Saccharopolyspora sRNA 350: a 508-nucleotide sequence from Kibdelosporangium phytohabitans. Rfam links the family to the GO term regulation of secondary metabolite biosynthetic process. Taxonomically the source falls in Kibdelosporangium (Bacteria, Bacillati, Actinomycetota, Pseudonocardiaceae).

RNA sequence: UUCGCGGUGAACUCCCAGAUGCUCUGAUCCUGGACGAGUGCCUGGUCACCGAAAUAGUCGCCGUCGACGAGCGUGCCGAGCACGGUCAGAUCGCCGUACUCGCCGGUGCCGAUCUUGUUCACCUUGCCGUGCGCCACGACGUAGACGAACUCGGCCUCGUGGCCGAACUCGGCGAUCACGUCACCGGGCUGGUACUCCUGUUGCUGGAAGCGACCGGCGAGCGCGUGCAGCGCCUCCUCGUCGUCGAAUGUGCGCAGCAGCGGCAGUUCGACCAGAUCGGGCCCGACGAUGCUGGUUUGUGAACCGGUGUUGGUGACCGCGAUCCGGCCGUCGCCGACGGUGUAGCUCAGCCGCCGGUUGACCCGGUAGGCCCCACCCUGGGCCUGCACCCACGGCAGGAUCCGCAGCAGCCAGCGCGAGGUGAUGCUCUGCAUCUGCGGAACGGAUUUGGUGGUCGUCGCCAGAUUCCGCGCCGCCGCGGUGGCAAGGCUCUGCUGUUGAUCACCGU
Numbered sequence: 001u002u003c004g005c006g007g008u009g010a011a012c013u014c015c016c017a018g019a020u021g022c023u024c025u026g027a028u029c030c031u032g033g034a035c036g037a038g039u040g041c042c043u044g045g046u047c048a049c050c051g052a053a054a055u056a057g058u059c060g061c062c063g064u065c066g067a068c069g070a071g072c073g074u075g076c077c078g079a080g081c082a083c084g085g086u087c088a089g090a091u092c093g094c095c096g097u098a099c100u101c102g103c104c105g106g107u108g109c110c111g112a113u114c115u116u117g118u119u120c121a122c123c124u125u126g127c128c129g130u131g132c133g134c135c136a137c138g139a140c141g142u143a144g145a146c147g148a149a150c151u152c153g154g155c156c157u158c159g160u161g162g163c164c165g166a167a168c169u170c171g172g173c174g175a176u177c178a179c180g181u182c183a184c185c186g187g188g189c190u191g192g193u194a195c196u197c198c199u200g201u202u203g204c205u206g207g208a209a210g211c212g213a214c215c216g217g218c219g220a221g222c223g224c225g226u227g228c229a230g231c232g233c234c235u236c237c238u239c240g241u242c243g244u245c246g247a248a249u250g251u252g253c254g255c256a257g258c259a260g261c262g263g264c265a266g267u268u269c270g271a272c273c274a275g276a277u278c279g280g281g282c283c284c285g286a287c288g289a290u291g292c293u294g295g296u297u298u299g300u301g302a303a304c305c306g307g308u309g310u311u312g313g314u315g316a317c318c319g320c321g322a323u324c325c326g327g328c329c330g331u332c333g334c335c336g337a338c339g340g341u342g343u344a345g346c347u348c349a350g351c352c353g354c355c356g357g358u359u360g361a362c363c364c365g366g367u368a369g370g371c372c373c374c375a376c377c378c379u380g381g382g383c384c385u386g387c388a389c390c391c392a393c394g395g396c397a398g399g400a401u402c403c404g405c406a407g408c409a410g411c412c413a414g415c416g417c418g419a420g421g422u423g424a425u426g427c428u429c430u431g432c433a434u435c436u437g438c439g440g441a442a443c444g445g446a447u448u449u450g451g452u453g454g455u456c457g458u459c460g461c462c463a464g465a466u467u468c469c470g471c472g473c474c475g476c477c478g479c480g481g482u483g484g485c486a487a488g489g490c491u492c493u494g495c496u497g498u499u500g501a502u503c504a505c506c507g508u
Stems, first nucleotide, its partner, number of pairs: 006390004011385001014382003018328001021325001023322002025319002028316002035313001037311006045305001046302004052298001055232001058229001062225003065111002068108001075103001077102004082097005117222004122217002127212001130209001132206002135203002139199001141197001143196002150191001154189004159184002162177001235295002240290006250282002253279002256277001258275001261270002329342004353377001356374002360372001362370002391431002394428004400422002403418003407415001437476004443470004447465006477507002480503003484499001487496002